A member of the RNA family "SAH (S-adenosyl-L-homocysteine) riboswitch aptamer" from Paracandidimonas soli, 100 nucleotides long.
RNA sequence: GAAUCCGAGGAGCGUUGCGACGGGCGCAGACAGCGUCCGCCAGGCUCGGAUUCCGUUUCCGGCGGAGCAUGUCCGCCGGCAGCAACGACGCUCACCUCUU
Numbered sequence: 001g002a003a004u005c006c007g008a009g010g011a012g013c014g015u016u017g018c019g020a021c022g023g024g025c026g027c028a029g030a031c032a033g034c035g036u037c038c039g040c041c042a043g044g045c046u047c048g049g050a051u052u053c054c055g056u057u058u059c060c061g062g063c064g065g066a067g068c069a070u071g072u073c074c075g076c077c078g079g080c081a082g083c084a085a086c087g088a089c090g091c092u093c094a095c096c097u098c099u100u
Base pairs, nucleotide, nucleotide: 002052003051004050005049006048007047008046021039022038023037024036025035026034
The match comes from Rfam's covariance-model search (58 bits).